[Rfam]
RNA: Small nucleolar RNA Z221/R21b
Organism: Populus trichocarpa
RNA sequence: GGGCAGUGAUGACGAUUUUGAGAAAGUCAUGCACCACUCUGAUAUUAUCUGUGCUGAUAAAUCUCUCAUACCCAUAUGUUUCUGAGCCC
Numbered sequence: 001g002g003g004c005a006g007u008g009a010u011g012a013c014g015a016u017u018u019u020g021a022g023a024a025a026g027u028c029a030u031g032c033a034c035c036a037c038u039c040u041g042a043u044a045u046u047a048u049c050u051g052u053g054c055u056g057a058u059a060a061a062u063c064u065c066u067c068a069u070a071c072c073c074a075u076a077u078g079u080u081u082c083u084g085a086g087c088c089c
Stems, first nucleotide, its partner, number of pairs: 001089004